[Rfam]
RNA sequence: UAUGGUUUGAAGGAGCUUCCUUCAGUCCACUCACGGAUAGAUUAAGGGUUUGAAUUUACUGCCGACUCAUUCAUUCAAACACAGUAUUGAUUAUGCAUGUGAAUAAUUACUUUGAAUGUGUGAAUGAUGCGGGAGAUAAAUUUCAUCCUGUUCUUCUCUGUGCUUGGACUGAAGGGAGCUCCCUUUUACUUUCCA
Dot-bracket structure: ............((((((((..(((((((......(......................((.(((...((((....(.........................................)....))))...))).))......................)......)))))))..))))))))..............
Numbered sequence: 001u002a003u004g005g006u007u008u009g010a011a012g013g014a015g016c017u018u019c020c021u022u023c024a025g026u027c028c029a030c031u032c033a034c035g036g037a038u039a040g041a042u043u044a045a046g047g048g049u050u051u052g053a054a055u056u057u058a059c060u061g062c063c064g065a066c067u068c069a070u071u072c073a074u075u076c077a078a079a080c081a082c083a084g085u086a087u088u089g090a091u092u093a094u095g096c097a098u099g100u101g102a103a104u105a106a107u108u109a110c111u112u113u114g115a116a117u118g119u120g121u122g123a124a125u126g127a128u129g130c131g132g133g134a135g136a137u138a139a140a141u142u143u144c145a146u147c148c149u150g151u152u153c154u155u156c157u158c159u160g161u162g163c164u165u166g167g168a169c170u171g172a173a174g175g176g177a178g179c180u181c182c183c184u185u186u187u188a189c190u191u192u193c194c195a
Stems, first nucleotide, its partner, number of pairs: 013181008023171007036158001059135002062132003068126004076118001